[Rfam]
RNA sequence: GUGAGGUGAUGACAAAGUUUAUCCAUUCUCUGAGUGCAGUGACACCGCCCUCCUGCAGCACCCUGAUUCCUGUUCUAGGGUCUGGGUGCUGUGCAGCCUCCAGAGACUCUGCCAGUCUCCCGGUGUCCUACUGGGGGCUGCUGUGGUGUAUGGCUGGCUGCCUGCAGGAGUGAAGUGGUGCUGGCAGGGUUGGAGCCCCUCUUUGUGGGGGACUUCAUCCUCACUGAGAUGAGGGGUGAUGUCUGAUCAC
Numbered sequence: 001g002u003g004a005g006g007u008g009a010u011g012a013c014a015a016a017g018u019u020u021a022u023c024c025a026u027u028c029u030c031u032g033a034g035u036g037c038a039g040u041g042a043c044a045c046c047g048c049c050c051u052c053c054u055g056c057a058g059c060a061c062c063c064u065g066a067u068u069c070c071u072g073u074u075c076u077a078g079g080g081u082c083u084g085g086g087u088g089c090u091g092u093g094c095a096g097c098c099u100c101c102a103g104a105g106a107c108u109c110u111g112c113c114a115g116u117c118u119c120c121c122g123g124u125g126u127c128c129u130a131c132u133g134g135g136g137g138c139u140g141c142u143g144u145g146g147u148g149u150a151u152g153g154c155u156g157g158c159u160g161c162c163u164g165c166a167g168g169a170g171u172g173a174a175g176u177g178g179u180g181c182u183g184g185c186a187g188g189g190u191u192g193g194a195g196c197c198c199c200u201c202u203u204u205g206u207g208g209g210g211g212a213c214u215u216c217a218u219c220c221u222c223a224c225u226g227a228g229a230u231g232a233g234g235g236g237u238g239a240u241g242u243c244u245g246a247u248c249a250c
Base pairs, nucleotide, nucleotide: 010249011248012247017242018241020239023236024235026233027232028231030228031227034224035223039185040184042182043180044179045178046177047176048175050172051169052168053167054166055165056164057163059088060087061086062085063084065082068080069079070078071077093161094160095159096158097157098156106147107146111141112140114139115138116137117136119135120134121133122132123131124130125129187222188221189219191217192216193215194214196211197210198209199208200207

Shown here is a 250-nucleotide sequence from Accipiter nisus, a member of the family "Small nucleolar RNA SNORD17". NCBI's taxonomy places the organism under Eukaryota, Sauria, Theropoda, Accipitriformes, Accipiter. About the family: The snoRNA HBI-43 belongs to the C/D family of snoRNAs, guiding 2'O-ribose methylation at position U3797 of the 28S rRNA. Pseudouridylation in position U3797 is predicted to be guided by the H/ACA snoRNA ACA48. Gene Ontology terms of the family: RNA processing and nucleolus. For this family Rfam cites "RNomics: an experimental approach that identifies 201 candidates for novel, small, non-messenger RNAs in mouse" (Huttenhofer et al., EMBO J, 2001).